Background
The record is a 74-nucleotide RNA from Marinobacterium stanieri, which matches "tRNA" in Rfam.
RNA sequence: GGCAAUGUAGCUCAGUUGGUUAGAGCAUCGCAUUCAUAAUGCGAGGGUCGCAGGUUCGAGUCCCGCCAUUGCCA
Numbered sequence: 001g002g003c004a005a006u007g008u009a010g011c012u013c014a015g016u017u018g019g020u021u022a023g024a025g026c027a028u029c030g031c032a033u034u035c036a037u038a039a040u041g042c043g044a045g046g047g048u049c050g051c052a053g054g055u056u057c058g059a060g061u062c063c064c065g066c067c068a069u070u071g072c073c074a
Stems, first nucleotide, its partner, number of pairs: 001073007010026004028044005050066002053063002
Background:
Taxonomically the source falls in Marinobacterium (Bacteria, Pseudomonadota, Gammaproteobacteria, Oceanospirillales).